[Rfam]
RNA: Small Cajal body specific RNA 4
RNA sequence: ACUGGAGGACUAAUCAGACUGAGUCUGAAGAGUGAGACUCGGGUGACAACAGCCUCCGAAAAAUAAAAAGGGAUGGAGAGAGCGGCCUCGCUUACAGCAAAGCGAAGCGCUGACUGCGCCAUCCCACACCU
Number, nucleotide and partner (000 for none) at each position: 001a000002c000003u059004g057005g056006a055007g054008g053009a000010c000011u000012a000013a000014u000015c000016a000017g044018a000019c042020u000021g040022a039023g038024u037025c036026u035027g000028a000029a000030g000031a000032g000033u000034g000035a026036g025037a024038c023039u022040c021041g000042g019043g000044u017045g000046a000047c000048a000049a000050c000051a000052g000053c008054c007055u006056c005057c004058g000059a003060a000061a000062a000063a000064u000065a000066a000067a000068a000069a000070g124071g123072g122073a000074u000075g000076g000077a000078g000079a000080g000081a115082g114083c112084g111085g110086c109087c000088u107089c000090g000091c000092u000093u104094a000095c102096a000097g000098c000099a000100a000101a000102g095103c000104g093105a000106a000107g088108c000109g086110c085111u084112g083113a000114c082115u081116g000117c000118g000119c000120c000121a000122u072123c071124c070125c000126a000127c000128a000129c000130c000131u000